The record is an 86-nucleotide sequence from Candidatus Parepulonipiscium sp. PG-Nun2H_MBin03, which matches "Glycine riboswitch aptamer" in Rfam. Rfam describes the family as follows. This family represents the bacterial glycine riboswitch. The base pairs follow the family's consensus structure.
RNA sequence: AUGAUAUCUGCUGGAAAAAGCAUAUGCUUACCGAAGGUGUAACUCUCUCAGGUGGUCAAAAUUUGACUAAAGACAGUAGAUUGAUG
Numbered sequence: 001a002u003g004a005u006a007u008c009u010g011c012u013g014g015a016a017a018a019a020g021c022a023u024a025u026g027c028u029u030a031c032c033g034a035a036g037g038u039g040u041a042a043c044u045c046u047c048u049c050a051g052g053u054g055g056u057c058a059a060a061a062u063u064u065g066a067c068u069a070a071a072g073a074c075a076g077u078a079g080a081u082u083g084a085u086g
Base pairs, nucleotide, nucleotide: 006081007080008079009078010077011076012075013074019028020027021026030053031052032051033049034048037047039045
Lineage of the source: Bacteria > Bacillati > Bacillota > Lachnospirales > Candidatus Parepulonipiscium.